The record is a 187-nucleotide RNA sequence from Saccharibacillus sacchari, which matches "Lysine riboswitch aptamer" in Rfam. Rfam 15.1 lists 3,224 matches to the family in 1,923 species. A search with the family's covariance model found it, with a score of 97 bits.
[Rfam]
RNA sequence: UGAUGAGGUAGAGGUUGCGGUGGCGAUCAGUACACCGGAGGAGGCGCAGCAGAGCGCCGAUGAUCCCGGCCGGAAAGGCGCACCCGCCGAAGCACGGCGUUCUCUGAACUGAACCCCGUGCUGGGACCGUCUCCGAAAGGAACGGAACUGUCACCUGCCGUAAGGCGGGUGUUGAGCUAUCUUCACG
Numbered sequence: 001u002g003a004u005g006a007g008g009u010a011g012a013g014g015u016u017g018c019g020g021u022g023g024c025g026a027u028c029a030g031u032a033c034a035c036c037g038g039a040g041g042a043g044g045c046g047c048a049g050c051a052g053a054g055c056g057c058c059g060a061u062g063a064u065c066c067c068g069g070c071c072g073g074a075a076a077g078g079c080g081c082a083c084c085c086g087c088c089g090a091a092g093c094a095c096g097g098c099g100u101u102c103u104c105u106g107a108a109c110u111g112a113a114c115c116c117c118g119u120g121c122u123g124g125g126a127c128c129g130u131c132u133c134c135g136a137a138a139g140g141a142a143c144g145g146a147a148c149u150g151u152c153a154c155c156u157g158c159c160g161u162a163a164g165g166c167g168g169g170u171g172u173u174g175a176g177c178u179a180u181c182u183u184c185a186c187g
Stems, first nucleotide, its partner, number of pairs: 006182006017087004023081003033072001035069004040064001091122007099114004123149002127145004132140002152171006